[Rfam]
RNA sequence: GUUUAUUUUGGGAGUGUUUGCUGUAUAAUUGGAUUUAAUGAAAUGUUUACAGGUUCAGUAAGGCAUGACUCUGAGUAGAU
Numbered sequence: 001g002u003u004u005a006u007u008u009u010g011g012g013a014g015u016g017u018u019u020g021c022u023g024u025a026u027a028a029u030u031g032g033a034u035u036u037a038a039u040g041a042a043a044u045g046u047u048u049a050c051a052g053g054u055u056c057a058g059u060a061a062g063g064c065a066u067g068a069c070u071c072u073g074a075g076u077a078g079a080u
Stems, first nucleotide, its partner, number of pairs: 001080008010071003014066005019060005025054002030049005